RNA: c-di-GMP-I riboswitch aptamer
RNA sequence: UAAUGAAAAAGGCAAACUUGCUCGAAAGACAAGGACGCAAAGCCAUGAGCCUACCCAUUGGAAACAAUGUACGGUCGUCAGGUUGCCACC
Numbered sequence: 001u002a003a004u005g006a007a008a009a010a011g012g013c014a015a016a017c018u019u020g021c022u023c024g025a026a027a028g029a030c031a032a033g034g035a036c037g038c039a040a041a042g043c044c045a046u047g048a049g050c051c052u053a054c055c056c057a058u059u060g061g062a063a064a065c066a067a068u069g070u071a072c073g074g075u076c077g078u079c080a081g082g083u084u085g086c087c088a089c090c
Base pairs, nucleotide, nucleotide: 012038013037017033018032019031020030022029023028041084042083043082044081046080047079048078049075050074051073056069057068058067059066